[Rfam]
RNA sequence: GUUUAUUUUGGGAGUGGUUGCUGUAUCAUUGGAUUUAAUGAAAUGUUUAGAGGUGCAGUAGGCAUGACUUCAAGUAUAU
Numbered sequence: 001g002u003u004u005a006u007u008u009u010g011g012g013a014g015u016g017g018u019u020g021c022u023g024u025a026u027c028a029u030u031g032g033a034u035u036u037a038a039u040g041a042a043a044u045g046u047u048u049a050g051a052g053g054u055g056c057a058g059u060a061g062g063c064a065u066g067a068c069u070u071c072a073a074g075u076a077u078a079u
Base pairs, nucleotide, nucleotide: 001079002078004076005075006074007073008072010070011069012068014065015064016063018061019060020059021058022057023056024055025054026053030049031048032047033046034045